int-alpA RNA: a 78-nucleotide RNA from Polaromonas naphthalenivorans. Acidobacteria (1 example), Planctomycetes (1 example), Proteobacteria. The sequence is in the family's curated seed alignment. Lineage of the source: Bacteria > Pseudomonadati > Betaproteobacteria > Comamonadaceae > Polaromonas naphthalenivorans.
RNA sequence: GCCCCAGCUAGUCCGACCUCGAAGCUCGGACGAAAAGCCAGACCCCCGGCUGGCCUGCUGGGACUCCUUCAUCCGGGG
Numbered sequence: 001g002c003c004c005c006a007g008c009u010a011g012u013c014c015g016a017c018c019u020c021g022a023a024g025c026u027c028g029g030a031c032g033a034a035a036a037g038c039c040a041g042a043c044c045c046c047c048g049g050c051u052g053g054c055c056u057g058c059u060g061g062g063a064c065u066c067c068u069u070c071a072u073c074c075g076g077g078g
Stems, first nucleotide, its partner, number of pairs: 001064001003062006011031006037054005044078006